Rfam assigns this 64-nucleotide sequence from Echeneis naucrates to the family "Selenocysteine insertion sequence 1". The organism belongs to Echeneis, within Eukaryota. It is annotated as a cis-regulatory element. Rfam describes the family as follows. The incorporation of selenocysteine into a protein sequence is directed by an in-frame UGA codon (usually a stop codon) within the coding region of the mRNA. Selenoprotein mRNAs contain a conserved secondary structure in the 3' UTR that is required for the distinction of UGA stop from UGA selenocysteine.
RNA sequence: CUGGCAUUAUGAAGGUCUGGCCCAAAAGCAGAUUCUGUCGGGCCUGGCCAGAAGUCCCCGCCAU
Numbered sequence: 001c002u003g004g005c006a007u008u009a010u011g012a013a014g015g016u017c018u019g020g021c022c023c024a025a026a027a028g029c030a031g032a033u034u035c036u037g038u039c040g041g042g043c044c045u046g047g048c049c050a051g052a053a054g055u056c057c058c059c060g061c062c063a064u
Base pairs, nucleotide, nucleotide: 002063003062004061005060014049015048016047017046019044020043021042022041023040029037030036031035